[Rfam]
This 146-nucleotide RNA from Methylibium petroleiphilum belongs to the Rfam family "radC RNA". The family's RNA type in Rfam is cis-regulatory element.

RNA sequence: AGCUCACCCUCAUGCGUUGCUGACCGUCGUCAGCGGCAUGCCCUGGCAGUCUCGGUCUUCAAGACUGCAACGCGGUUCGCCGCGUUGACCGAUCCAGUCCGCUUCGCAUCGCCCACCGCGGACGCUCGCCGGCCUGGCGACGAUGC
Numbered sequence: 001a002g003c004u005c006a007c008c009c010u011c012a013u014g015c016g017u018u019g020c021u022g023a024c025c026g027u028c029g030u031c032a033g034c035g036g037c038a039u040g041c042c043c044u045g046g047c048a049g050u051c052u053c054g055g056u057c058u059u060c061a062a063g064a065c066u067g068c069a070a071c072g073c074g075g076u077u078c079g080c081c082g083c084g085u086u087g088a089c090c091g092a093u094c095c096a097g098u099c100c101g102c103u104u105c106g107c108a109u110c111g112c113c114c115a116c117c118g119c120g121g122a123c124g125c126u127c128g129c130c131g132g133c134c135u136g137g138c139g140a141c142g143a144u145g146c
Stems, first nucleotide, its partner, number of pairs: 011040004019034006046068006054090004069086007118146003126140006